Shown here is a 130-nucleotide sequence from Roseospira marina, a member of the family "Guanidine-I riboswitch aptamer". The organism belongs to Roseospira, within Bacteria.

RNA sequence: UCCUAGAGCGGCUAGGGUUCCGGUUCGGCGUGGCGCGCACAGGCGCACAACGACGAACGGCUGGUCCGAGAGCAGCAGCCCUUGGGGUUAACAGCCCUUGGGUACACGGCGGGACAAAAGCCCGGGAGAC
Dot-bracket structure: .......((.((..((...((((((((..........................)))))..).)).))....)).)).((((..((..........))..)))).(.[...(((.......))).)..]..